[Rfam]
RNA sequence: CCGUGCGAAGGUGAAAACACGGUCCGGUCGGUAGUCCGGACGCGAACCCUAUGCCGCGCUCGACGCGUCAACGGCUUCGUCAGUAACCUGCCUCCUUGGUUGUCCGUCCUUCGCGCAGCAACC
Dot-bracket structure: ...((((((((..........((((((........))))))(((((.............................))))).........(((.....))).......))))))))........